Rfam assigns this 75-nucleotide RNA from Streptomyces sp. Mg1 to the family "ASpks TB sRNA".

[Rfam]
RNA sequence: UUUGAUCGAGCCGAGCAGCAGCGGCCGGUCCGCCGACCGGUCCUGGCCGUAGGUGGCCAGCAGCGCCUGCGCCUC
Numbered sequence: 001u002u003u004g005a006u007c008g009a010g011c012c013g014a015g016c017a018g019c020a021g022c023g024g025c026c027g028g029u030c031c032g033c034c035g036a037c038c039g040g041u042c043c044u045g046g047c048c049g050u051a052g053g054u055g056g057c058c059a060g061c062a063g064c065g066c067c068u069g070c071g072c073c074u075c
Base pairs, nucleotide, nucleotide: 015025016024031071032070033069038065039064043060044059045058047056048055049054